[Rfam]
The family of this 193-nucleotide RNA from Actinacidiphila oryziradicis is "Actinobacteria sRNA Ms_IGR-5". The base pairs follow the family's consensus structure. The family's RNA type in Rfam is small RNA.

RNA sequence: ACACACGAAGGGAGGUGGUCCGCUUAAUGAUUAGCAACCGGACGCGUGAGGUGGCUGCGGGCUAACGCCGCGCACCUUGCUCGCCGCACGGCGGGCCGAAAUCCCACGCAGACACCCGACCCGCGGGCUCGCCGGCACGUCCGGCCGGUGCUCGGCACAUAUGUGCCGGGGAGCAGCCCGCGGGUUGUCUGCG
Numbered sequence: 001a002c003a004c005a006c007g008a009a010g011g012g013a014g015g016u017g018g019u020c021c022g023c024u025u026a027a028u029g030a031u032u033a034g035c036a037a038c039c040g041g042a043c044g045c046g047u048g049a050g051g052u053g054g055c056u057g058c059g060g061g062c063u064a065a066c067g068c069c070g071c072g073c074a075c076c077u078u079g080c081u082c083g084c085c086g087c088a089c090g091g092c093g094g095g096c097c098g099a100a101a102u103c104c105c106a107c108g109c110a111g112a113c114a115c116c117c118g119a120c121c122c123g124c125g126g127g128c129u130c131g132c133c134g135g136c137a138c139g140u141c142c143g144g145c146c147g148g149u150g151c152u153c154g155g156c157a158c159a160u161a162u163g164u165g166c167c168g169g170g171g172a173g174c175a176g177c178c179c180g181c182g183g184g185u186u187g188u189c190u191g192c193g
Base pairs, nucleotide, nucleotide: 015058016057017056018055019054060097061096062095063094067092068091069090070089072087073086117187118186119185120184121183122182123181124180125179126178127177128176129175131149132148133147134146135145136144